Description: Rfam assigns this 172-nucleotide RNA sequence from Catonella morbi to the family "Clostridiales-1 RNA". It scores 89 bits against the family's covariance model. By type it is a small RNA. Taxonomically the source falls in Catonella morbi (Bacteria, Bacillota, Clostridia, Lachnospiraceae). The family has 194 seed sequences and 1,172 matches in Rfam 15.1.

RNA sequence: UGAUACAAGUGUCAAAAGUAUAAAAAUUCGAUGCAAGCUUGCUUGCAAGAGAAUUUAUUAUCUUUUGACAUGCAAAAAUAUGAGUAAGUAGCCAUUUUUUGCAAAAAAAUGAGCGGAUUACGAAUAUUUUUGCAAGGACCCGCAGAGGUGAAGCCGAAGCAAUCCUGUAUCA
Numbered sequence: 001u002g003a004u005a006c007a008a009g010u011g012u013c014a015a016a017a018g019u020a021u022a023a024a025a026a027u028u029c030g031a032u033g034c035a036a037g038c039u040u041g042c043u044u045g046c047a048a049g050a051g052a053a054u055u056u057a058u059u060a061u062c063u064u065u066u067g068a069c070a071u072g073c074a075a076a077a078a079u080a081u082g083a084g085u086a087a088g089u090a091g092c093c094a095u096u097u098u099u100u101g102c103a104a105a106a107a108a109a110u111g112a113g114c115g116g117a118u119u120a121c122g123a124a125u126a127u128u129u130u131u132g133c134a135a136g137g138a139c140c141c142g143c144a145g146a147g148g149u150g151a152a153g154c155c156g157a158a159g160c161a162a163u164c165c166u167g168u169a170u171c172a
Stems, first nucleotide, its partner, number of pairs: 001172007010070004017064002020061004025056002027053003032048001033046005074131008084121004091114002093111008136165003142160002147155003